[Rfam]
Source information: The record is a 122-nucleotide RNA from Brassica carinata, which matches "MIR9563 microRNA precursor family" in Rfam. Rfam 15.1 lists 5,832 matches to the family in 9 species. Rfam links the family to the GO terms RISC complex and miRNA-mediated post-transcriptional gene silencing. A search with the family's covariance model found it, with a score of 96 bits. The source organism's lineage runs through Eukaryota, Embryophyta, Brassicales, Brassicaceae and Brassica.

RNA sequence: GGAAUAUAAGAACUUGACUUUUAACUUUUAACUAAAAAAAGUUAAGAACCGUCUCUUAAGAGUUUUAAGAGACGGUUCUUAGUUUUUUUAAUUAAAAGUUAAGAGACGAGUUCUUAUAUUUC
Numbered sequence: 001g002g003a004a005u006a007u008a009a010g011a012a013c014u015u016g017a018c019u020u021u022u023a024a025c026u027u028u029u030a031a032c033u034a035a036a037a038a039a040a041g042u043u044a045a046g047a048a049c050c051g052u053c054u055c056u057u058a059a060g061a062g063u064u065u066u067a068a069g070a071g072a073c074g075g076u077u078c079u080u081a082g083u084u085u086u087u088u089u090a091a092u093u094a095a096a097a098g099u100u101a102a103g104a105g106a107c108g109a110g111u112u113c114u115u116a117u118a119u120u121u122c
Stems, first nucleotide, its partner, number of pairs: 001122016018105014033090007042082007
Dot-bracket structure: ((((((((((((((((.((((((((((((((.(((((((..(((((((...........................))))))).))))))).)))))))))))))).))))))))))))))))